[Rfam]
RNA: Nitrogen stress-induced RNA 1
RNA sequence: UGGUAGAUGCACCCUGAAUCCACCCCGGAGGGAGACCUUCGGGGCUUUUUUU
Numbered sequence: 001u002g003g004u005a006g007a008u009g010c011a012c013c014c015u016g017a018a019u020c021c022a023c024c025c026c027g028g029a030g031g032g033a034g035a036c037c038u039u040c041g042g043g044g045c046u047u048u049u050u051u052u
Stems, first nucleotide, its partner, number of pairs: 002013003023044009